[Rfam]
RNA: BsrC
Organism: Planomicrobium sp. YIM 101495
RNA sequence: UCUAACCUAGACGACGUAAACCCUACCUUCUUUUACGUCCUUGCGAUCCUGUAAUCGCGCCAGUGUGAAUAAGUAUCUACAAAAUCAU
Numbered sequence: 001u002c003u004a005a006c007c008u009a010g011a012c013g014a015c016g017u018a019a020a021c022c023c024u025a026c027c028u029u030c031u032u033u034u035a036c037g038u039c040c041u042u043g044c045g046a047u048c049c050u051g052u053a054a055u056c057g058c059g060c061c062a063g064u065g066u067g068a069a070u071a072a073g074u075a076u077c078u079a080c081a082a083a084a085u086c087a088u
Stems, first nucleotide, its partner, number of pairs: 036067002040063002042059006